[Rfam]
RNA sequence: CUACGGUGAUGAUUUUAAAAACUGAGCUCUCUCUUGCUGAUGUGUUAGUGGAGAAAGCGUAAAAAUUCUGAGUAGU
Numbered sequence: 001c002u003a004c005g006g007u008g009a010u011g012a013u014u015u016u017a018a019a020a021a022c023u024g025a026g027c028u029c030u031c032u033c034u035u036g037c038u039g040a041u042g043u044g045u046u047a048g049u050g051g052a053g054a055a056a057g058c059g060u061a062a063a064a065a066u067u068c069u070g071a072g073u074a075g076u
Base pairs, nucleotide, nucleotide: 001075002074003073004072